[Rfam]
The record is a 104-nucleotide RNA sequence from Hydrogenispora ethanolica, which matches "SAM riboswitch aptamer (S box leader)" in Rfam.
RNA sequence: UCCUCAUCAAGAGAGGUGGAGGGACUGGCCCGAUGAGACCUCGGCAACCUUCGUGUGAGAGCGAACUGGUGCCAAAUCCAGCAGGGAAUCCUGGCAGAUGAGAG
Numbered sequence: 001u002c003c004u005c006a007u008c009a010a011g012a013g014a015g016g017u018g019g020a021g022g023g024a025c026u027g028g029c030c031c032g033a034u035g036a037g038a039c040c041u042c043g044g045c046a047a048c049c050u051u052c053g054u055g056u057g058a059g060a061g062c063g064a065a066c067u068g069g070u071g072c073c074a075a076a077u078c079c080a081g082c083a084g085g086g087a088a089u090c091c092u093g094g095c096a097g098a099u100g101a102g103a104g
Stems, first nucleotide, its partner, number of pairs: 001104001003102006013042005021031003025081004043073004048069002050065004077096001082093004

Source information
Rfam's curators write: The SAM riboswitch is found upstream of a number of genes which code for proteins involved in methionine or cysteine biosynthesis in Gram-positive bacteria. The source organism's lineage runs through Bacteria, Bacillati, Bacillota and Hydrogenispora. A search with the family's covariance model found it, with a score of 92 bits.